The record is an 83-nucleotide sequence from Lactococcus hircilactis, which matches "ctRNA" in Rfam.
The family's RNA type in Rfam is antisense RNA.
The source organism's lineage runs through Bacteria, Bacillota, Lactobacillales, Streptococcaceae and Lactococcus.
It scores 49 bits against the family's covariance model.
RNA sequence: UAUAAGUACUCCUUUGCGGGUAUUUUAUGAUAAGCAUAGGAAUUGCUUUUUGUGGAUACUAUUCCUAUGCUCAUAUUUUAACA
Numbered sequence: 001u002a003u004a005a006g007u008a009c010u011c012c013u014u015u016g017c018g019g020g021u022a023u024u025u026u027a028u029g030a031u032a033a034g035c036a037u038a039g040g041a042a043u044u045g046c047u048u049u050u051u052g053u054g055g056a057u058a059c060u061a062u063u064c065c066u067a068u069g070c071u072c073a074u075a076u077u078u079u080a081a082c083a
Base pairs, nucleotide, nucleotide: 004025005024006023007022008021009020010019011018033071034070035069036068037067038066039065040064041063042062043061